Shown here is a 73-nucleotide RNA from Orthoflavivirus japonicum, a member of the family "Flavivirus DB element". From the family's description: This family represents the flavivirus 3' UTR elements DB1 and DB2. These DB elements are thought to be required for efficient translation.
RNA sequence: AUGCGGCCCAAGCCUCCUCGAAGCUGUAGAGGAGGUGGAAGGACUAGAGGUUAGAGGAGACCCCGCAUUUGCA
Numbered sequence: 001a002u003g004c005g006g007c008c009c010a011a012g013c014c015u016c017c018u019c020g021a022a023g024c025u026g027u028a029g030a031g032g033a034g035g036u037g038g039a040a041g042g043a044c045u046a047g048a049g050g051u052u053a054g055a056g057g058a059g060a061c062c063c064c065g066c067a068u069u070u071g072c073a
Stems, first nucleotide, its partner, number of pairs: 002067005007042002012036008049062004
The literature on the family includes a 2021 paper in Nucleic Acids Res by Akiyama et al., "Three-dimensional structure of a flavivirus dumbbell RNA reveals molecular details of an RNA regulator of replication".